[Rfam]
RNA: Bacterial large subunit ribosomal RNA, nucleotides 670 to 899
RNA sequence: GAGUUAGUGGUACGUGGCGAGGUUAACCCGUGUGGGGAAGCCGUAGCGAAAGCGAGUCCGAAUAGGGCGUUUGAGUCGCGUGCUCUAGACCCGAAGCGGAGUGAUCUAUCCAUGGCCAGGUUGAAGCGUCGGUAAGACGUCGUGGAGGACCGAACCCACCAGGGUUGAAAACCUGGGGGAUGAGCUGUGGAUAGGGGUGAAAGGCCAAUCAAACUCCGUGAUAGCUGGUU
Numbered sequence: 001g002a003g004u005u006a007g008u009g010g011u012a013c014g015u016g017g018c019g020a021g022g023u024u025a026a027c028c029c030g031u032g033u034g035g036g037g038a039a040g041c042c043g044u045a046g047c048g049a050a051a052g053c054g055a056g057u058c059c060g061a062a063u064a065g066g067g068c069g070u071u072u073g074a075g076u077c078g079c080g081u082g083c084u085c086u087a088g089a090c091c092c093g094a095a096g097c098g099g100a101g102u103g104a105u106c107u108a109u110c111c112a113u114g115g116c117c118a119g120g121u122u123g124a125a126g127c128g129u130c131g132g133u134a135a136g137a138c139g140u141c142g143u144g145g146a147g148g149a150c151c152g153a154a155c156c157c158a159c160c161a162g163g164g165u166u167g168a169a170a171a172c173c174u175g176g177g178g179g180a181u182g183a184g185c186u187g188u189g190g191a192u193a194g195g196g197g198u199g200a201a202a203g204g205c206c207a208a209u210c211a212a213a214c215u216c217c218g219u220g221a222u223a224g225c226u227g228g229u230u
Stems, first nucleotide, its partner, number of pairs: 005087003009084010021042004027036003046053002056068004090228002093225001097218006106194011117182001119151004126143003130139002155179003159176005196206003